[Rfam]
RNA sequence: AUGCCUUAUAUUAGAUUGCUUCAUAUAAUCCCAAAAAUAUGGUUUGGGAGUUUCUACCAAGCACCGUAAACGCUUGAUUAUGAACUAUGUAACCGUUGCU
Numbered sequence: 001a002u003g004c005c006u007u008a009u010a011u012u013a014g015a016u017u018g019c020u021u022c023a024u025a026u027a028a029u030c031c032c033a034a035a036a037a038u039a040u041g042g043u044u045u046g047g048g049a050g051u052u053u054c055u056a057c058c059a060a061g062c063a064c065c066g067u068a069a070a071c072g073c074u075u076g077a078u079u080a081u082g083a084a085c086u087a088u089g090u091a092a093c094c095g096u097u098g099c100u
Stems, first nucleotide, its partner, number of pairs: 018086001020084006029049007058076005

This 100-nucleotide sequence from Pelagibaculum spongiae belongs to the Rfam family "Purine riboswitch aptamer". Pairs were carried over by alignment from the consensus structure, which is taken from published work. Lineage of the source: Bacteria > Pseudomonadota > Gammaproteobacteria > Oceanospirillales > Pelagibaculum.